[Rfam]
RNA sequence: CCAUGGCCAACACUUAAGGUAGGGAGUGCAAACUGGCUUCACAUCCUGCUCAUCAAAGUCAUAUCUUGACUGGCAGUCCCGAUGAGCGAGUAAGGCACACGGAGGUUUUUGUUUUAGUACGUAGGCAUAGUUCCACUAGGGAUUAUGAAUCGUGCAUGCCACAUAUGGACGGUAGGUGGUAUCUUUAGAAGAUUAUAAUUUCCGUAC
Numbered sequence: 001c002c003a004u005g006g007c008c009a010a011c012a013c014u015u016a017a018g019g020u021a022g023g024g025a026g027u028g029c030a031a032a033c034u035g036g037c038u039u040c041a042c043a044u045c046c047u048g049c050u051c052a053u054c055a056a057a058g059u060c061a062u063a064u065c066u067u068g069a070c071u072g073g074c075a076g077u078c079c080c081g082a083u084g085a086g087c088g089a090g091u092a093a094g095g096c097a098c099a100c101g102g103a104g105g106u107u108u109u110u111g112u113u114u115u116a117g118u119a120c121g122u123a124g125g126c127a128u129a130g131u132u133c134c135a136c137u138a139g140g141g142a143u144u145a146u147g148a149a150u151c152g153u154g155c156a157u158g159c160c161a162c163a164u165a166u167g168g169a170c171g172g173u174a175g176g177u178g179g180u181a182u183c184u185u186u187a188g189a190a191g192a193u194u195a196u197a198a199u200u201u202c203c204g205u206a207c
Stems, first nucleotide, its partner, number of pairs: 034061006068207001102205001104203002107198002117155005126147009157181006

The record is a 207-nucleotide RNA from Drosophila sechellia, which matches "R2 RNA element" in Rfam.
This family represents the 3' UTR region of the R2 retrotransposable element. This family is known to interact with the R2-encoded reverse transcriptase in a reaction known as target primed reverse transcription (TPRT).
Rfam 15.1 lists 3,698 matches to the family in 74 species.
The family's consensus secondary structure is taken from published work.
The literature on the family includes a 1993 paper in Cell by Luan et al., "Reverse transcription of R2Bm RNA is primed by a nick at the chromosomal target site: a mechanism for non-LTR retrotransposition".